[Rfam]
RNA sequence: UUCCUUUCCAGGGGGAGCGUCGUGAGGGCGCUGAGAAGUCGAUAAGGAAGGUUUCCUUCCGCCGCGACGACCCUUCGAACCUGAUCCGGAUCAUGCCGGCGAAGGGAUGGAGCUGAUUUUUCCG
Numbered sequence: 001u002u003c004c005u006u007u008c009c010a011g012g013g014g015g016a017g018c019g020u021c022g023u024g025a026g027g028g029c030g031c032u033g034a035g036a037a038g039u040c041g042a043u044a045a046g047g048a049a050g051g052u053u054u055c056c057u058u059c060c061g062c063c064g065c066g067a068c069g070a071c072c073c074u075u076c077g078a079a080c081c082u083g084a085u086c087c088g089g090a091u092c093a094u095g096c097c098g099g100c101g102a103a104g105g106g107a108u109g110g111a112g113c114u115g116a117u118u119u120u121u122c123c124g
Base pairs, nucleotide, nucleotide: 006112007111008110009109010108011074012073013072014071017031018030019029020028021027038068039067040066041065080105081104082103086099087098088097089096
TPP riboswitch aptamer (THI element): a 124-nucleotide RNA from Rhizobiales bacterium PAR1. A search with the family's covariance model found it, with a score of 72 bits. Its family is annotated with thiamine pyrophosphate binding in the Gene Ontology. The source organism's lineage runs through Bacteria, Pseudomonadati, Pseudomonadota, Alphaproteobacteria and Hyphomicrobiales. The base pairs follow the family's consensus structure, which is taken from published work.